[Rfam]
RNA sequence: UAUAAUAUAUUAAAAGAAUAAAAUAAUUGCGAGAGCCUUCGGGCUCUCAUUAAGCCCUAGUGGACUUGCCCUCCUAGUCACUAGGGUGUUUUU
Numbered sequence: 001u002a003u004a005a006u007a008u009a010u011u012a013a014a015a016g017a018a019u020a021a022a023a024u025a026a027u028u029g030c031g032a033g034a035g036c037c038u039u040c041g042g043g044c045u046c047u048c049a050u051u052a053a054g055c056c057c058u059a060g061u062g063g064a065c066u067u068g069c070c071c072u073c074c075u076a077g078u079c080a081c082u083a084g085g086g087u088g089u090u091u092u093u
Base pairs, nucleotide, nucleotide: 031048032047033046034045035044036043037042054087055086056085057084058083059082060081063079064078065077066076